[Rfam]
RNA sequence: GAUCUACAUUUCGAGUUGAACAUCUUGUUCAUGCCAACCUGUUACCCAUACAAGGUGGAUGCAUAAUGUGGCAUUACUAAUGCAAUACUGGGUUACCGC
Numbered sequence: 001g002a003u004c005u006a007c008a009u010u011u012c013g014a015g016u017u018g019a020a021c022a023u024c025u026u027g028u029u030c031a032u033g034c035c036a037a038c039c040u041g042u043u044a045c046c047c048a049u050a051c052a053a054g055g056u057g058g059a060u061g062c063a064u065a066a067u068g069u070g071g072c073a074u075u076a077c078u079a080a081u082g083c084a085a086u087a088c089u090g091g092g093u094u095a096c097c098g099c
Base pairs, nucleotide, nucleotide: 006069007068008067009066010065015032017031018030019029020028021027034058035057038055039054040053041051042050071083072082073081074080

The family of this 99-nucleotide RNA from Paenalcaligenes hominis is "SAM-I/IV (S-adenosyl methionine) riboswitch aptamer".
Pairs were carried over by alignment from the consensus structure, which is taken from published work.
It scores 47 bits against the family's covariance model.
A reference for the family is Trausch et al. (2014), "Structural basis for diversity in the SAM clan of riboswitches", PNAS.